Purine riboswitch aptamer: a 102-nucleotide RNA from Lysinibacillus halotolerans. Gene Ontology term of the family: purine nucleobase biosynthetic process.
RNA sequence: GGAGUAAAUUAAAUAUUUCGUCGUAUAAUGUCGAGGAUAUGGCUCGUGAGUUUCUACCAAGCUACCUUAAAUAGCUUGACUACGAUUUAAGAUAAAUGGAAG
Numbered sequence: 001g002g003a004g005u006a007a008a009u010u011a012a013a014u015a016u017u018u019c020g021u022c023g024u025a026u027a028a029u030g031u032c033g034a035g036g037a038u039a040u041g042g043c044u045c046g047u048g049a050g051u052u053u054c055u056a057c058c059a060a061g062c063u064a065c066c067u068u069a070a071a072u073a074g075c076u077u078g079a080c081u082a083c084g085a086u087u088u089a090a091g092a093u094a095a096a097u098g099g100a101a102g
Stems, first nucleotide, its partner, number of pairs: 020086006029049001032046004058078007
Pairs were carried over by alignment from the consensus structure, which is taken from published work.